[Rfam]
RNA sequence: AGUUGUGGCAAUUUCUUUCUGGCACAUUUGUUAAAUUUUCAAAUGGGUCUGAGUCUACCACACACAUUGUAAGGAGCUAGCAAAAGCUGAAAGACUGAAAUAUCUCUCUUGAGCUUUUUUUGUAUCAAACAUUGUUUCUCACAAUC
Number, nucleotide and partner (000 for none) at each position: 001a000002g000003u000004u000005g061006u060007g059008g058009c000010a056011a000012u000013u000014u000015c000016u000017u000018u000019c000020u000021g049022g048023c047024a000025c045026a044027u043028u042029u041030g040031u000032u000033a000034a000035a000036u000037u000038u000039u000040c030041a029042a028043a027044u026045g025046g000047g023048u022049c021050u000051g000052a000053g000054u000055c000056u010057a000058c008059c007060a006061c005062a000063c000064a000065c000066a000067u000068u000069g000070u000071a000072a000073g139074g138075a137076g136077c000078u134079a088080g087081c086082a000083a000084a000085a000086g081087c080088u079089g000090a000091a000092a000093g000094a000095c000096u000097g000098a000099a000100a000101u000102a000103u000104c000105u131106c000107u129108c000109u127110u000111g000112a000113g000114c000115u000116u000117u000118u000119u000120u000121u000122g000123u000124a000125u000126c000127a109128a000129a107130c000131a105132u000133u000134g078135u000136u076137u075138c074139u073140c000141a000142c000143a000144a000145u000146c000
The family of this 146-nucleotide sequence from Cavia porcellus is "Small nucleolar RNA SNORA12". A search with the family's covariance model found it, with a score of 106 bits. Rfam links the family to the GO terms RNA processing and nucleolus. Rfam classes the family as an H/ACA-box small nucleolar RNA. From the family's description: U108 belongs to the H/ACA family of snoRNAs. The sequence is predicted to guide the pseudouridylation of the U372 residue in the 28S rRNA subunit. However it has not been reported as a pseudouridylation site. The family has 23 seed sequences and 571 matches in Rfam 15.1. The organism belongs to Cavia, within Eukaryota. Pairs were carried over by alignment from the consensus structure, which was predicted with RNAalifold. For this family Rfam cites "A novel experimental approach for systematic identification of box H/ACA snoRNAs from eukaryotes" (Gu et al., Nucleic Acids Res, 2005).